DUF805 RNA: a 69-nucleotide RNA sequence from Flavobacterium crassostreae. By type it is a cis-regulatory element. Lineage of the source: Bacteria > Pseudomonadati > Flavobacteriia > Flavobacteriaceae > Flavobacterium.
[Rfam]
RNA sequence: AUGCAAUGGAGUCCAGUUACCAAUUAAAAAAACGGGGCGAAAUCGAAAAGCCUAACGAGUAGAAAAAAU
Numbered sequence: 001a002u003g004c005a006a007u008g009g010a011g012u013c014c015a016g017u018u019a020c021c022a023a024u025u026a027a028a029a030a031a032a033c034g035g036g037g038c039g040a041a042a043u044c045g046a047a048a049a050g051c052c053u054a055a056c057g058a059g060u061a062g063a064a065a066a067a068a069u
Base pairs, nucleotide, nucleotide: 007022008021009020036052037051038050043063044062